[Rfam]
RNA: MIR6152 microRNA precursor family
Organism: Nicotiana attenuata
RNA sequence: UGGACAUAUUAUUGUAUUCGACUGUAUUCACGGCGUGAAACAAAGGAUUACACAGUUUUUAAACGGAAAGUGAAUUAACAUAAUAGACUCCC
Numbered sequence: 001u002g003g004a005c006a007u008a009u010u011a012u013u014g015u016a017u018u019c020g021a022c023u024g025u026a027u028u029c030a031c032g033g034c035g036u037g038a039a040a041c042a043a044a045g046g047a048u049u050a051c052a053c054a055g056u057u058u059u060u061a062a063a064c065g066g067a068a069a070g071u072g073a074a075u076u077a078a079c080a081u082a083a084u085a086g087a088c089u090c091c092c
Stems, first nucleotide, its partner, number of pairs: 002091003009086007017078002020076002027074005034065003037059005